[Rfam]
RNA sequence: UUAAGUUUUGAUUGUCCAAACGCAAUUCUUGUGACUUUGAUACCAAGACUUGUGUGUGGACAUCACCUCUUGG
Numbered sequence: 001u002u003a004a005g006u007u008u009u010g011a012u013u014g015u016c017c018a019a020a021c022g023c024a025a026u027u028c029u030u031g032u033g034a035c036u037u038u039g040a041u042a043c044c045a046a047g048a049c050u051u052g053u054g055u056g057u058g059g060a061c062a063u064c065a066c067c068u069c070u071u072g073g
Stems, first nucleotide, its partner, number of pairs: 002072004009065004014061005021054005027048005
mir-219 microRNA precursor family: a 73-nucleotide RNA from Frankliniella occidentalis. Lineage of the source: Eukaryota > Hexapoda > Terebrantia > Thripoidea > Frankliniella. A reference for the family is Lim et al. (2003), "Vertebrate microRNA genes", Science.